[Rfam]
RNA sequence: UGCCGUGAUGUCGUAAUUUGCGUCUUACUCUGUGUGCAGUGACAGUUGCCUGCUGUCAGCGUGCUGCCGCAGAUGGCUGACGAUCAGGUAACACUGAGCG
Numbered sequence: 001u002g003c004c005g006u007g008a009u010g011u012c013g014u015a016a017u018u019u020g021c022g023u024c025u026u027a028c029u030c031u032g033u034g035u036g037c038a039g040u041g042a043c044a045g046u047u048g049c050c051u052g053c054u055g056u057c058a059g060c061g062u063g064c065u066g067c068c069g070c071a072g073a074u075g076g077c078u079g080a081c082g083a084u085c086a087g088g089u090a091a092c093a094c095u096g097a098g099c100g
Stems, first nucleotide, its partner, number of pairs: 001100003021082004030072005039064002041057005
Rfam assigns this 100-nucleotide RNA from Upupa epops to the family "Small nucleolar RNA SNORD16".
By type it is a C/D-box small nucleolar RNA.
Rfam links the family to the GO terms nucleolus and RNA processing.